[Rfam]
RNA sequence: ACCGCGUACUUACCUACUAUAUAGUAGCCGAAAUACAUGUAUUUUACCUAUUAUAUAGCUGGUAAGUAUGCGGUUU
Numbered sequence: 001a002c003c004g005c006g007u008a009c010u011u012a013c014c015u016a017c018u019a020u021a022u023a024g025u026a027g028c029c030g031a032a033a034u035a036c037a038u039g040u041a042u043u044u045u046a047c048c049u050a051u052u053a054u055a056u057a058g059c060u061g062g063u064a065a066g067u068a069u070g071c072g073g074u075u076u
Stems, first nucleotide, its partner, number of pairs: 001074014017058011030045002033042003
RNA: mir-7563 microRNA precursor family